The family of this 91-nucleotide sequence from Streptomyces sp. Ag109_G2-6 is "sodF sRNA". The source organism's lineage runs through Bacteria, Bacillati, Actinomycetota, Kitasatosporales and Streptomyces. The family has 6 seed sequences and 336 matches in Rfam 15.1. For this family Rfam cites "Inverse regulation of Fe- and Ni-containing SOD genes by a Fur family regulator Nur through small RNA processed from 3'UTR of the sodF mRNA" (Kim et al., Nucleic Acids Res, 2014). Gene Ontology terms of the family: negative regulation of translation, regulation of mRNA stability and mRNA binding. The pairing is the family consensus, mapped onto this sequence.
RNA sequence: ACCGCCCGCCUCGUGAUCGUCUUCUCAGCCUUCGCGUGCGGGCGUGCAGAGCGGAAGACCCCCGUGAGGACGUGACUCACGGGGGUCUUCC
Numbered sequence: 001a002c003c004g005c006c007c008g009c010c011u012c013g014u015g016a017u018c019g020u021c022u023u024c025u026c027a028g029c030c031u032u033c034g035c036g037u038g039c040g041g042g043c044g045u046g047c048a049g050a051g052c053g054g055a056a057g058a059c060c061c062c063c064g065u066g067a068g069g070a071c072g073u074g075a076c077u078c079a080c081g082g083g084g085g086u087c088u089u090c091c
Stems, first nucleotide, its partner, number of pairs: 001045002005042005011036001013035004019029002053091016